Rfam assigns this 82-nucleotide RNA from Tupaia belangeri to the family "mir-590 microRNA precursor family". The literature on the family includes a 2008 paper in Genome Res by Murchison et al., "Conservation of small RNA pathways in platypus". It scores 77 bits against the family's covariance model.
RNA sequence: AGACAGUCAGAAGUGAGCUUAUUCAUAAAAGUACAGUAUAAUACAACAAGUAACUUUAUGUAUAAGCUAGUCUCUGAUUGAA
Numbered sequence: 001a002g003a004c005a006g007u008c009a010g011a012a013g014u015g016a017g018c019u020u021a022u023u024c025a026u027a028a029a030a031g032u033a034c035a036g037u038a039u040a041a042u043a044c045a046a047c048a049a050g051u052a053a054c055u056u057u058a059u060g061u062a063u064a065a066g067c068u069a070g071u072c073u074c075u076g077a078u079u080g081a082a
Stems, first nucleotide, its partner, number of pairs: 004080008013071002016068007024060006032052003